Overview: The record is a 139-nucleotide RNA sequence from Neotoma lepida, which matches "Small Cajal body specific RNA 21" in Rfam. Rfam classes the family as a small Cajal body RNA. Rfam 15.1 lists 278 matches to the family in 138 species.
RNA sequence: UGGCUCGGUUUCCUGGGAGGUGGGCUCAGUGUACACCACCUCCUCUCAGCUGAGCCUAGAGUACAGAGGCAAAGUGUACACCUGUGAGGAAGAGGUGCUUAAGCAGGGAGCCUUGCUCGGCUGUCCUAGCCUCACAUUU
Dot-bracket structure: .((((((.......(((((((((............)))))))))......)))))).........(((((.(.(....(.......(((......................)))....).....).).)))))......